[Rfam]
RNA sequence: UGUCCAUUUUCAGUUAUCAUGGUACCGCUGCUGUGUCCCUCUCAAGUACAGUACUAUGAUAACUGAAGAUUGGCA
Numbered sequence: 001u002g003u004c005c006a007u008u009u010u011c012a013g014u015u016a017u018c019a020u021g022g023u024a025c026c027g028c029u030g031c032u033g034u035g036u037c038c039c040u041c042u043c044a045a046g047u048a049c050a051g052u053a054c055u056a057u058g059a060u061a062a063c064u065g066a067a068g069a070u071u072g073g074c075a
Stems, first nucleotide, its partner, number of pairs: 011065015027049001029048004
A member of the RNA family "mir-101 microRNA precursor family" from Takifugu rubripes, 75 nucleotides long. The family has 59 seed sequences and 1,334 matches in Rfam 15.1. The literature on the family includes a 2002 paper in Genes Dev by Mourelatos et al., "miRNPs: a novel class of ribonucleoproteins containing numerous microRNAs". Gene Ontology terms of the family: miRNA-mediated post-transcriptional gene silencing and RISC complex. Lineage of the source: Eukaryota > Metazoa > Euteleostomi > Osteoglossocephalai > Takifugu. The sequence is in the family's curated seed alignment.